[Rfam]
RNA sequence: CUUACAGAGUUCUUUGGCAUUCUGUCCACCUCCUUUCUGAAUAUAUUUGUGUAUAAGUGUACGCAACUACGUUGUGUUUUGUGUGAGGAGGUGGGCAUACUGCCAAUAGAGAUCUGUUAG
Numbered sequence: 001c002u003u004a005c006a007g008a009g010u011u012c013u014u015u016g017g018c019a020u021u022c023u024g025u026c027c028a029c030c031u032c033c034u035u036u037c038u039g040a041a042u043a044u045a046u047u048u049g050u051g052u053a054u055a056a057g058u059g060u061a062c063g064c065a066a067c068u069a070c071g072u073u074g075u076g077u078u079u080u081g082u083g084u085g086a087g088g089a090g091g092u093g094g095g096c097a098u099a100c101u102g103c104c105a106a107u108a109g110a111g112a113u114c115u116g117u118u119a120g
Base pairs, nucleotide, nucleotide: 011110014106015105016104017103018102019101023097024096025095026094027093028092029091030090031089032088033087034086035085
Dot-bracket structure: ..........(..((((((...(((((((((((((.................................................)))))))))))))...))))))...)..........

Record summary: The record is a 120-nucleotide RNA sequence from Brassica rapa, which matches "MIR394 microRNA precursor family" in Rfam. NCBI's taxonomy places the organism under Eukaryota, Spermatophyta, eudicotyledons, Brassiceae, Brassica rapa. The family has 19 seed sequences and 724 matches in Rfam 15.1.